[Rfam]
RNA sequence: GUCUCAAGAUUACGUCUCCUCCCAUUGCGUUUCUUGAGUGUUCCCCUCUGAAGAUUUUCAUGGCUGAUAUUAUCGCCGAGAUCUUCAAACUUUAGCCGGACAAUUGUCCGGCUUUUUUUU
Number, nucleotide and partner (000 for none) at each position: 001g039002u000003c038004u037005c036006a000007a034008g033009a032010u000011u000012a030013c029014g028015u027016c000017u000018c000019c000020u000021c000022c000023c000024a000025u000026u000027g015028c014029g013030u012031u000032u009033c008034u007035u000036g005037a004038g003039u001040g000041u000042u000043c000044c000045c000046c000047u000048c000049u087050g086051a085052a084053g083054a082055u081056u080057u079058u078059c000060a000061u000062g000063g000064c000065u000066g000067a000068u000069a000070u000071u000072a000073u000074c000075g000076c000077c000078g058079a057080g056081a055082u054083c053084u052085u051086c050087a049088a000089a000090c000091u000092u000093u000094a113095g112096c111097c110098g109099g108100a107101c106102a000103a000104u000105u000106g101107u100108c099109c098110g097111g096112c095113u094114u000115u000116u000117u000118u000119u000120u000
The record is a 120-nucleotide RNA sequence from Attibartonella tamiae, which matches "Alphaproteobacterial ar15" in Rfam. On this family, see Torres-Quesada et al., PLoS One 2013: "Independent activity of the homologous small regulatory RNAs AbcR1 and AbcR2 in the legume symbiont Sinorhizobium meliloti". Gene Ontology term of the family: protein binding. Rfam classes the family as a small RNA. Lineage of the source: Bacteria > Pseudomonadati > Pseudomonadota > Hyphomicrobiales > Attibartonella tamiae. Its Rfam clan is "suhB sRNA clan". The family has 61 seed sequences and 316 matches in Rfam 15.1.